[Rfam]
RNA sequence: GGGAUUCCUUAUCUGUGUUUAAUACGUUAAUUAUCUGGAACCUGUCUUAUUGCACUCUACUAACAAAACACAAUAAGACAGGUUCUACCUUUAAUUGCCGUGCACUAAAAAUAG
Number, nucleotide and partner (000 for none) at each position: 001g099002g098003g000004a096005u000006u000007c000008c000009u000010u000011a000012u000013c000014u000015g000016u000017g000018u000019u000020u000021a000022a000023u000024a090025c000026g088027u087028u000029a000030a000031u000032u000033a000034u000035c000036u000037g086038g085039a084040a083041c082042c081043u080044g079045u078046c077047u000048u000049a074050u073051u072052g071053c000054a000055c000056u067057c000058u065059a000060c000061u000062a000063a000064c000065a058066a000067a056068a000069c000070a000071c052072a051073a050074u049075a000076a000077g046078a045079c044080a043081g042082g041083u040084u039085c038086u037087a027088c026089c000090u024091u000092u000093a000094a000095u000096u004097g000098c002099c001100g000101u000102g000103c000104a000105c000106u000107a000108a000109a000110a000111a000112u000113a000114g000

Shown here is a 114-nucleotide sequence from Citrobacter sp. JGM124, a member of the family "tp2". On this family, see Rivas et al., Curr Biol 2001: "Computational identification of noncoding RNAs in E. coli by comparative genomics". Rfam classes the family as a small RNA. The match comes from Rfam's covariance-model search (82 bits). The family's consensus secondary structure was predicted with RNAalifold. Taxonomically the source falls in Citrobacter (Bacteria, Pseudomonadati, Pseudomonadota, Gammaproteobacteria).